[Rfam]
RNA sequence: GAUUGGACUAGGUCGGGCGGUUUGGCCCCGCCCACUACCCGCAUUAUGGUCAUUAGCGGGGACCGAACACCGGGUGCGUCCGGUCAGACCGGUUCGGACCCUGGAAGCCGACGUCGAAGCCUCGUCCGACGGGGACGGCGGUUCGUAGCCUGCGCCUGCAGGGGCGUCUUGGCUACGAUUCGUCGAUGGCACCCCGUCAGGCACGGAAGUGAGCAGCGGACCAUCGAACGUACGUCGCUCGUCGGGUCGCGGGGUGGAGGAGGCGCCCGGGACUAUUCGGACUGGAACGGCGGGCAACCCCGGCCGUCCACAU
Numbered sequence: 001g002a003u004u005g006g007a008c009u010a011g012g013u014c015g016g017g018c019g020g021u022u023u024g025g026c027c028c029c030g031c032c033c034a035c036u037a038c039c040c041g042c043a044u045u046a047u048g049g050u051c052a053u054u055a056g057c058g059g060g061g062a063c064c065g066a067a068c069a070c071c072g073g074g075u076g077c078g079u080c081c082g083g084u085c086a087g088a089c090c091g092g093u094u095c096g097g098a099c100c101c102u103g104g105a106a107g108c109c110g111a112c113g114u115c116g117a118a119g120c121c122u123c124g125u126c127c128g129a130c131g132g133g134g135a136c137g138g139c140g141g142u143u144c145g146u147a148g149c150c151u152g153c154g155c156c157u158g159c160a161g162g163g164g165c166g167u168c169u170u171g172g173c174u175a176c177g178a179u180u181c182g183u184c185g186a187u188g189g190c191a192c193c194c195c196g197u198c199a200g201g202c203a204c205g206g207a208a209g210u211g212a213g214c215a216g217c218g219g220a221c222c223a224u225c226g227a228a229c230g231u232a233c234g235u236c237g238c239u240c241g242u243c244g245g246g247u248c249g250c251g252g253g254g255u256g257g258a259g260g261a262g263g264c265g266c267c268c269g270g271g272a273c274u275a276u277u278c279g280g281a282c283u284g285g286a287a288c289g290g291c292g293g294g295c296a297a298c299c300c301c302g303g304c305c306g307u308c309c310a311c312a313u
Base pairs, nucleotide, nucleotide: 001313004310005309006308007307008306011064012063013062014061015033016032017031018030019029020028038060039059040058041057042056070303071302072301073300074299078295079294080293081292089285090284091283092282093281094280095279096278097277098276100271101270102269103268104267107264108263109262112259114257119255120254121253122252123251124250125249126245127244128243129242130241131240132239133238134236135235136234137233138231139230140229141180143178144177145176146175147174148173149172150171152167153166154165155164156163157162183227184226185225186224187223188222189221194219195218196217197216202211203210204209